[Rfam]
RNA sequence: AAUGCUUAAACGCUGAAUCGAUUAAAAAGAGCGGAGGAACCAUGUACGUGGGGUGAAGCAAUUUUUUUGCCAGGCGACCUUUGCCGUCUGAACCCGUCAGCUAACUUCGUAAGCGUGGCAAGGGAGAAGGU
Numbered sequence: 001a002a003u004g005c006u007u008a009a010a011c012g013c014u015g016a017a018u019c020g021a022u023u024a025a026a027a028a029g030a031g032c033g034g035a036g037g038a039a040c041c042a043u044g045u046a047c048g049u050g051g052g053g054u055g056a057a058g059c060a061a062u063u064u065u066u067u068u069g070c071c072a073g074g075c076g077a078c079c080u081u082u083g084c085c086g087u088c089u090g091a092a093c094c095c096g097u098c099a100g101c102u103a104a105c106u107u108c109g110u111a112a113g114c115g116u117g118g119c120a121a122g123g124g125a126g127a128a129g130g131u
Stems, first nucleotide, its partner, number of pairs: 011115004018030002031110006041050002051095003059069003072089004
The family of this 131-nucleotide RNA sequence from Fictibacillus macauensis is "c-di-AMP riboswitch aptamer (ydaO/yuaA leader)". This family represents a conserved RNA structure found upstream of the ydaO and yuaA genes in Bacillus subtilis and related genes in other bacteria. The base pairs follow the family's consensus structure. The match comes from Rfam's covariance-model search (92 bits). NCBI's taxonomy places the organism under Bacteria, Bacillota, Caryophanales, Fictibacillaceae, Fictibacillus macauensis.